[Rfam]
RNA sequence: ACAUCUGUUAAGUAUUGCAAUGAAGAUGAACGGUAGUCAUUGGAAGUCUGCAUAGUACUCCAAACAGGUAGAGUAGAAAGUAAAUUCGUUAGGGUAUUUGAAAAGACUGAAGUUUAAGCUUCAGUCUUUUUU
Number, nucleotide and partner (000 for none) at each position: 001a000002c000003a069004u068005c067006u066007g065008u064009u000010a000011a000012g000013u000014a000015u000016u000017g000018c000019a000020a000021u000022g000023a000024a000025g000026a000027u000028g000029a000030a000031c000032g000033g000034u000035a000036g000037u000038c000039a000040u000041u000042g000043g000044a000045a059046g058047u057048c000049u055050g000051c000052a000053u000054a000055g049056u000057a047058c046059u045060c000061c000062a000063a000064a008065c007066a006067g005068g004069u003070a000071g000072a000073g000074u000075a000076g000077a000078a000079a000080g000081u000082a000083a000084a095085u094086u093087c092088g000089u000090u000091a000092g087093g086094g085095u084096a000097u000098u000099u000100g131101a130102a129103a128104a127105g126106a125107c124108u123109g122110a121111a120112g119113u000114u000115u000116a000117a000118g000119c112120u111121u110122c109123a108124g107125u106126c105127u104128u103129u102130u101131u100132u000
A member of the RNA family "Haemophilus regulatory RNA responsive to iron" from Aggregatibacter actinomycetemcomitans, 132 nucleotides long. The family's RNA type in Rfam is small RNA. The sequence is in the family's curated seed alignment. NCBI's taxonomy places the organism under Bacteria, Pseudomonadota, Gammaproteobacteria, Aggregatibacter, Aggregatibacter actinomycetemcomitans. The family's consensus secondary structure was predicted with CMfinder. About the family: Involved in iron homeostasis in Haemophilus species. Orthologues exist only among other Pasteurellacae. The literature on the family includes a 2014 paper in PLoS One by Santana et al., "HrrF is the Fur-regulated small RNA in nontypeable Haemophilus influenzae".